[Rfam]
RNA sequence: CUCUGGAGAGUCUCAGUAAUGAGCGCCGAAGGAGAAAACCGGCCAAGGGUCGGUGAAACUCUCAGGUACAAGGGACAGAG
Numbered sequence: 001c002u003c004u005g006g007a008g009a010g011u012c013u014c015a016g017u018a019a020u021g022a023g024c025g026c027c028g029a030a031g032g033a034g035a036a037a038a039c040c041g042g043c044c045a046a047g048g049g050u051c052g053g054u055g056a057a058a059c060u061c062u063c064a065g066g067u068a069c070a071a072g073g074g075a076c077a078g079a080g
Base pairs, nucleotide, nucleotide: 001080002079003078004077005076012023013022014021015020025067026066027065028063029062032061033060034059038054039053040052041051042050
Dot-bracket structure: (((((......((((....)))).(((((..(((...(((((.......)))))....))))).)))........)))))

Shown here is an 80-nucleotide RNA from Desulfocicer vacuolatum, a member of the family "Glycine riboswitch aptamer".
This family represents the bacterial glycine riboswitch.